[Rfam]
RNA: Bacterial RNase P class A
RNA sequence: CGAGUUGGCCAGACAGUCGCUGCGUUCGUAAGAACGGGGAGGAAAGUCCGGGCUCCAUAGAGCAGGGUGCCAGGUAACGCCUGGGCGGCGCAAGCCGACGACCAGUGCAACAGAGAGCAGACCGCCUGCCUGAUUUAUCAGGUCGGUAAGGGUGAAAGGGUGCGGUAAGAGCGCACCGCGCGGCUGGCAACAGUUCGUGGCAUGGUAAACUCCACCCGGAGCAAGAUCAAAUAGGGUUCCACUGCUUACUUAGGUAAGUUAAUGCGUGGCUCGCGUUGGAACCGGGUAGAUUGCUUGAGCCGUUGAGCGAUUAACGGCCUAGAUGAAUGACUGUCCAAGACAGGACCCGGCUUAUCGGCCAACUCACCUC
Numbered sequence: 001c002g003a004g005u006u007g008g009c010c011a012g013a014c015a016g017u018c019g020c021u022g023c024g025u026u027c028g029u030a031a032g033a034a035c036g037g038g039g040a041g042g043a044a045a046g047u048c049c050g051g052g053c054u055c056c057a058u059a060g061a062g063c064a065g066g067g068u069g070c071c072a073g074g075u076a077a078c079g080c081c082u083g084g085g086c087g088g089c090g091c092a093a094g095c096c097g098a099c100g101a102c103c104a105g106u107g108c109a110a111c112a113g114a115g116a117g118c119a120g121a122c123c124g125c126c127u128g129c130c131u132g133a134u135u136u137a138u139c140a141g142g143u144c145g146g147u148a149a150g151g152g153u154g155a156a157a158g159g160g161u162g163c164g165g166u167a168a169g170a171g172c173g174c175a176c177c178g179c180g181c182g183g184c185u186g187g188c189a190a191c192a193g194u195u196c197g198u199g200g201c202a203u204g205g206u207a208a209a210c211u212c213c214a215c216c217c218g219g220a221g222c223a224a225g226a227u228c229a230a231a232u233a234g235g236g237u238u239c240c241a242c243u244g245c246u247u248a249c250u251u252a253g254g255u256a257a258g259u260u261a262a263u264g265c266g267u268g269g270c271u272c273g274c275g276u277u278g279g280a281a282c283c284g285g286g287u288a289g290a291u292u293g294c295u296u297g298a299g300c301c302g303u304u305g306a307g308c309g310a311u312u313a314a315c316g317g318c319c320u321a322g323a324u325g326a327a328u329g330a331c332u333g334u335c336c337a338a339g340a341c342a343g344g345a346c347c348c349g350g351c352u353u354a355u356c357g358g359c360c361a362a363c364u365c366a367c368c369u370c
Stems, first nucleotide, its partner, number of pairs: 002365009011355001012335007020039002023036005044353003048350005053221004060271001063268001065217005070084005085099001086097004100212002105210002107206002122151002124147003128143005159177006178201001179199005184193003225292004235283006262276005299318008